[Rfam]
RNA sequence: CCAGGGGCUGCCGCCCCUGGCUAUUUUCGGUCGCUCCUUCGGAGCU
Numbered sequence: 001c002c003a004g005g006g007g008c009u010g011c012c013g014c015c016c017c018u019g020g021c022u023a024u025u026u027u028c029g030g031u032c033g034c035u036c037c038u039u040c041g042g043a044g045c046u
Stems, first nucleotide, its partner, number of pairs: 001020008033045005

Rfam assigns this 46-nucleotide RNA sequence to the family "Acido-Lenti-1 RNA". Rfam classes the family as a small RNA.